This 102-nucleotide RNA sequence from Evansella caseinilytica belongs to the Rfam family "SAM riboswitch aptamer (S box leader)".

[Rfam]
RNA sequence: UUCUUAUCCAGAGCAGGUGGAGGGACUGGCCCGAUGAUACCCGGCAACCGAUGCAACAGGCGUACGGUGCUAAUUCCUGCAAUGUUGAUUGCAAGAUAAGAG
Numbered sequence: 001u002u003c004u005u006a007u008c009c010a011g012a013g014c015a016g017g018u019g020g021a022g023g024g025a026c027u028g029g030c031c032c033g034a035u036g037a038u039a040c041c042c043g044g045c046a047a048c049c050g051a052u053g054c055a056a057c058a059g060g061c062g063u064a065c066g067g068u069g070c071u072a073a074u075u076c077c078u079g080c081a082a083u084g085u086u087g088a089u090u091g092c093a094a095g096a097u098a099a100g101a102g
Base pairs, nucleotide, nucleotide: 001102002101003100004099005098006097007096008095013042016041017040018039022032023031024030026079028077029076043071044070045069046068048067049066051063052062053061054060075094080091081090082089083088
The match comes from Rfam's covariance-model search (78 bits).
Lineage of the source: Bacteria > Bacillati > Bacillota > Bacilli > Evansella.